[Rfam]
Source information: The family of this 51-nucleotide RNA from Phoenix dactylifera is "Guanidine-II riboswitch aptamer (mini-ykkC)". The source organism's lineage runs through Eukaryota, Embryophyta, Liliopsida, Arecales and Phoenix. It scores 34 bits against the family's covariance model. Its family is annotated with regulation of gene expression in the Gene Ontology. About the family: Simpler in structure and has fewer highly conserved nucleotide positions than the ykkC-yxkD leader. Despite this each of its two stem-loop structures directly bind free guanidine.
RNA sequence: CUCUGGAGACGACUCCGGAAAGUCUGCUUUUUACUUGCGGGGACGACUCCG
Numbered sequence: 001c002u003c004u005g006g007a008g009a010c011g012a013c014u015c016c017g018g019a020a021a022g023u024c025u026g027c028u029u030u031u032u033a034c035u036u037g038c039g040g041g042g043a044c045g046a047c048u049c050c051g
Stems, first nucleotide, its partner, number of pairs: 002019007038051005